[Rfam]
RNA sequence: UAAUUAAAUGGCGAUGGAGUUCGCCCUUAACCACUGAAAUUUAGUUGAUGACUCCUGUAAAACA
Numbered sequence: 001u002a003a004u005u006a007a008a009u010g011g012c013g014a015u016g017g018a019g020u021u022c023g024c025c026c027u028u029a030a031c032c033a034c035u036g037a038a039a040u041u042u043a044g045u046u047g048a049u050g051a052c053u054c055c056u057g058u059a060a061a062a063c064a
Stems, first nucleotide, its partner, number of pairs: 010025004016055006033045004
Dot-bracket structure: .........[[[[..((((((]]]].......((((.....))))....)))))).........